[Rfam]
RNA sequence: AAGUUGUAAUUAGAUAGACCGCAGACAGCGGGCGCACUAAAGUGCUUAAUUUCCCGCCGAGGUCAGGAGUUUAAUGAAUAAAAACAUGAUUGGUUUUUAUUGUCUCCUGUACCUUGGCGUGCAGGAGACAAUUUUUUAAGAAGG
Numbered sequence: 001a002a003g004u005u006g007u008a009a010u011u012a013g014a015u016a017g018a019c020c021g022c023a024g025a026c027a028g029c030g031g032g033c034g035c036a037c038u039a040a041a042g043u044g045c046u047u048a049a050u051u052u053c054c055c056g057c058c059g060a061g062g063u064c065a066g067g068a069g070u071u072u073a074a075u076g077a078a079u080a081a082a083a084a085c086a087u088g089a090u091u092g093g094u095u096u097u098u099a100u101u102g103u104c105u106c107c108u109g110u111a112c113c114u115u116g117g118c119g120u121g122c123a124g125g126a127g128a129c130a131a132u133u134u135u136u137u138a139a140g141a142a143g144g
Stems, first nucleotide, its partner, number of pairs: 028057005034045003102129010
The family of this 144-nucleotide RNA from Thermovirga lienii is "Ribosomal protein L10 leader". Lineage of the source: Bacteria > Synergistota > Synergistales > Thermovirgaceae > Thermovirga lienii.